[Rfam]
RNA sequence: CUCUGGUGAUGACUCCAGCUUUGUGCCACGUGUCUGGGCCACUGAAUGCUUGUGAUGGUAUUGAGGAACUGAAGGAG
Numbered sequence: 001c002u003c004u005g006g007u008g009a010u011g012a013c014u015c016c017a018g019c020u021u022u023g024u025g026c027c028a029c030g031u032g033u034c035u036g037g038g039c040c041a042c043u044g045a046a047u048g049c050u051u052g053u054g055a056u057g058g059u060a061u062u063g064a065g066g067a068a069c070u071g072a073a074g075g076a077g
Stems, first nucleotide, its partner, number of pairs: 001077004

This 77-nucleotide sequence from Austrofundulus limnaeus belongs to the Rfam family "Small nucleolar RNA SNORD66". The literature on the family includes a 2001 paper in EMBO J by Huttenhofer et al., "RNomics: an experimental approach that identifies 201 candidates for novel, small, non-messenger RNAs in mouse". Rfam's curators write: snoRNA HBII-142 is part of the C/D family of snoRNAs.